[Rfam]
RNA sequence: UAGAAAGUUACUCCUUUGUGAGUGAUUUUAAGUAGGCAUAGAGAAACUGAUUUCGCUGUCGAUUUCUCUAUGCUUUUAUUGUAUCA
Numbered sequence: 001u002a003g004a005a006a007g008u009u010a011c012u013c014c015u016u017u018g019u020g021a022g023u024g025a026u027u028u029u030a031a032g033u034a035g036g037c038a039u040a041g042a043g044a045a046a047c048u049g050a051u052u053u054c055g056c057u058g059u060c061g062a063u064u065u066c067u068c069u070a071u072g073c074u075u076u077u078a079u080u081g082u083a084u085c086a
Stems, first nucleotide, its partner, number of pairs: 004029010034075013